[Rfam]
RNA sequence: GAUAGCAGAAGAGGAGCAUUGCCCAGGCAGGUGUUAUUGUGGAGCCUCAACUCCAAUACAUAACAUUUAUGGGGAGCAAUGCCGAGAUGAGUAUUUAGUGAGUGUAAAUAUUUGUCGGUUGUGUAGGCUGAAUCCUGCCAACUGUCGCCAGAGUAUCUGGUGAAGAGCUUCUGAGGUA
Numbered sequence: 001g002a003u004a005g006c007a008g009a010a011g012a013g014g015a016g017c018a019u020u021g022c023c024c025a026g027g028c029a030g031g032u033g034u035u036a037u038u039g040u041g042g043a044g045c046c047u048c049a050a051c052u053c054c055a056a057u058a059c060a061u062a063a064c065a066u067u068u069a070u071g072g073g074g075a076g077c078a079a080u081g082c083c084g085a086g087a088u089g090a091g092u093a094u095u096u097a098g099u100g101a102g103u104g105u106a107a108a109u110a111u112u113u114g115u116c117g118g119u120u121g122u123g124u125a126g127g128c129u130g131a132a133u134c135c136u137g138c139c140a141a142c143u144g145u146c147g148c149c150a151g152a153g154u155a156u157c158u159g160g161u162g163a164a165g166a167g168c169u170u171c172u173g174a175g176g177u178a
Base pairs, nucleotide, nucleotide: 006173007172008171009170010169011168016082017081018080019079020078021077022076024074030067031066032065033064034063035062036061037060086116087115088114089113090112091111092110093109094108095107096106097105117143118142119141120140123138124137125136126135127134145163146162147161148160149159150158151157
Dot-bracket structure: .....((((((....(((((((.(.....((((((((......................))))))))......).)))))))...((((((((((((.......))))))))))))((((..(((((......))))).)))).(((((((.....)))))))....)))))).....
Overview: The family of this 178-nucleotide RNA sequence from Vibrio sp. 99-8-1 is "Lysine riboswitch aptamer". Lineage of the source: Bacteria > Pseudomonadati > Pseudomonadota > Vibrionaceae > Vibrio. The family's consensus secondary structure is taken from published work.